[Rfam]
RNA sequence: UGGGGUUCAAUGGAGCUCUCUUUGCUCCUAGCUAGAAGGAGAUGAGGGUAUGCCACAGCUGCCAGUUCAUGAAUGCCCAUGGAUGCUCAAGUUCUAGCAUAUGGUGAGAGCAAGCUAUGGGUGAGCAUGACUUGGGAGAUGAGGGUACUUUGAUCUUUCUGGUAUUGGAGUGAAGGGAGCUCUAUGGUUCUUACUU
Numbered sequence: 001u002g003g004g005g006u007u008c009a010a011u012g013g014a015g016c017u018c019u020c021u022u023u024g025c026u027c028c029u030a031g032c033u034a035g036a037a038g039g040a041g042a043u044g045a046g047g048g049u050a051u052g053c054c055a056c057a058g059c060u061g062c063c064a065g066u067u068c069a070u071g072a073a074u075g076c077c078c079a080u081g082g083a084u085g086c087u088c089a090a091g092u093u094c095u096a097g098c099a100u101a102u103g104g105u106g107a108g109a110g111c112a113a114g115c116u117a118u119g120g121g122u123g124a125g126c127a128u129g130a131c132u133u134g135g136g137a138g139a140u141g142a143g144g145g146u147a148c149u150u151u152g153a154u155c156u157u158u159c160u161g162g163u164a165u166u167g168g169a170g171u172g173a174a175g176g177g178a179g180c181u182c183u184a185u186g187g188u189u190c191u192u193a194c195u196u
Stems, first nucleotide, its partner, number of pairs: 013182008023172006059138002062135003068129004076121001

Shown here is a 196-nucleotide RNA from Vitis vinifera, a member of the family "MIR159 microRNA precursor family". It is one of the family's seed sequences. Lineage of the source: Eukaryota > Tracheophyta > Spermatophyta > Vitaceae > Vitis. The family has 66 seed sequences and 3,649 matches in Rfam 15.1.